Shown here is a 106-nucleotide sequence from Clostridium perfringens, a member of the family "SAM riboswitch aptamer (S box leader)". Taxonomically the source falls in Clostridium perfringens (Bacteria, Bacillati, Eubacteriales, Clostridiaceae).
RNA sequence: CUCUUAUCCAGAGAGGUGGAGGGAAAAAGGCCCUAUGAAACCCGGCAACCAGUGAGAAAUCACUACGGUGCCAAUUCCGGUAAAGAAAUUCUUUACAAGAUGAGAG
Numbered sequence: 001c002u003c004u005u006a007u008c009c010a011g012a013g014a015g016g017u018g019g020a021g022g023g024a025a026a027a028a029g030g031c032c033c034u035a036u037g038a039a040a041c042c043c044g045g046c047a048a049c050c051a052g053u054g055a056g057a058a059a060u061c062a063c064u065a066c067g068g069u070g071c072c073a074a075u076u077c078c079g080g081u082a083a084a085g086a087a088a089u090u091c092u093u094u095a096c097a098a099g100a101u102g103a104g105a106g
Stems, first nucleotide, its partner, number of pairs: 001106008013043001015042003021033003029078002044072004049068002051064004076098001081095005